[Rfam]
RNA sequence: ACCUGACACGGACCUACGGUAGCAAGUCUUGCUCCAAGUUUCGGUCGCGGUGCGAUGAC
Numbered sequence: 001a002c003c004u005g006a007c008a009c010g011g012a013c014c015u016a017c018g019g020u021a022g023c024a025a026g027u028c029u030u031g032c033u034c035c036a037a038g039u040u041u042c043g044g045u046c047g048c049g050g051u052g053c054g055a056u057g058a059c
Stems, first nucleotide, its partner, number of pairs: 007049001009047003013043001016041001018035002021033005

The record is a 59-nucleotide RNA from Pseudohaemophilus minor, which matches "Selenocysteine insertion sequence 3" in Rfam. Taxonomically the source falls in Pseudohaemophilus minor (Bacteria, Pseudomonadati, Gammaproteobacteria, Pasteurellales). Rfam classes the family as a cis-regulatory element. The sequence is in the family's curated seed alignment. The family has 24 seed sequences and 640 matches in Rfam 15.1. The base pairs follow the family's consensus structure, which was predicted with CMfinder.